mir-544 microRNA precursor family: a 98-nucleotide sequence from Loxodonta africana. Lineage of the source: Eukaryota > Deuterostomia > Chordata > Mammalia > Loxodonta. Its family is annotated with RISC complex and miRNA-mediated post-transcriptional gene silencing in the Gene Ontology. Pairs were carried over by alignment from the consensus structure, which was predicted with RNAalifold.
[Rfam]
Nucleotides: 098
Stems, first nucleotide, its partner, number of pairs: 003091003009085003015080006021073003025069005031063002
Number, partner (000 for none) and nucleotide at each position: 001000a002000u003091c004090a005089u006000c007000u008000g009085g010084g011083g012000a013000g014000c015080u016079u017078g018077u019076u020075a021073a022072a023071a024000u025069g026068c027067a028066g029065a030000u031063u032062c033000c034000a035000g036000u037000u038000c039000a040000g041000a042000a043000g044000g045000u046000c047000u048000g049000g050000g051000a052000a053000g054000a055000g056000a057000c058000c059000a060000a061000a062032g063031a064000u065029u066028c067027u068026g069025c070000a071023u072022u073021u074000c075020u076019a077018a078017c079016a080015a081000a082000c083011u084010c085009c086000c087000a088000g089005g090004u091003g092000c093000u094000g095000c096000u097000g098000g